The family of this 107-nucleotide RNA from Anaerococcus obesiensis is "DUF3800-I RNA".
The source organism's lineage runs through Bacteria, Bacillati, Peptoniphilaceae, Anaerococcus and Anaerococcus obesiensis.
The sequence is in the family's curated seed alignment.
Actinobacteria, Firmicutes, Fusobacteria, Proteobacteria (1 example), Tenericutes (2 examples).
[Rfam]
RNA sequence: UAAAUUUGCAGGUAGAAAUACGCUGUAUACUCAUGAUAUCGAAUUUGCGUUUAAGCGAUAUGUAAUAUCGUCGAUCAUGAGGCCACCUAAUGGUGGCUUUUUUUAUU
Numbered sequence: 001u002a003a004a005u006u007u008g009c010a011g012g013u014a015g016a017a018a019u020a021c022g023c024u025g026u027a028u029a030c031u032c033a034u035g036a037u038a039u040c041g042a043a044u045u046u047g048c049g050u051u052u053a054a055g056c057g058a059u060a061u062g063u064a065a066u067a068u069c070g071u072c073g074a075u076c077a078u079g080a081g082g083c084c085a086c087c088u089a090a091u092g093g094u095g096g097c098u099u100u101u102u103u104u105a106u107u
Stems, first nucleotide, its partner, number of pairs: 007027005012021003030081006038075004042051003055071006082097006